A member of the RNA family "raiA RNA" from Isachenkonia alkalipeptolytica, 205 nucleotides long. It is annotated as a riboswitch. The organism belongs to Isachenkonia, within Bacteria. The family's consensus secondary structure is taken from published work.
[Rfam]
RNA sequence: GGGUAAAGGGUCUGUGGUUGAAAGUCCAAGCUAGUCGCAGGCAAAGGGAUCCACGUAAGGUAGUGAAAAAAUUUUACUGCUGAGCAUGGUGCGGCUUAGAAGUAAGUCCUGCCGAGGAAAUCGAGAGGUUUAGUAGUCAAGGCAAACCCUUGGCGAACUUCCCAGCAGGCGGGUGUGGGGUCAAAAACCAGGUCAGCCUUUACCC
Numbered sequence: 001g002g003g004u005a006a007a008g009g010g011u012c013u014g015u016g017g018u019u020g021a022a023a024g025u026c027c028a029a030g031c032u033a034g035u036c037g038c039a040g041g042c043a044a045a046g047g048g049a050u051c052c053a054c055g056u057a058a059g060g061u062a063g064u065g066a067a068a069a070a071a072u073u074u075u076a077c078u079g080c081u082g083a084g085c086a087u088g089g090u091g092c093g094g095c096u097u098a099g100a101a102g103u104a105a106g107u108c109c110u111g112c113c114g115a116g117g118a119a120a121u122c123g124a125g126a127g128g129u130u131u132a133g134u135a136g137u138c139a140a141g142g143c144a145a146a147c148c149c150u151u152g153g154c155g156a157a158c159u160u161c162c163c164a165g166c167a168g169g170c171g172g173g174u175g176u177g178g179g180g181u182c183a184a185a186a187a188c189c190a191g192g193u194c195a196g197c198c199u200u201u202a203c204c205c
Stems, first nucleotide, its partner, number of pairs: 001205009012196003015190005028176001030174001031041001033096007050089002058081002087183001108169005113123003127162002136154002140150003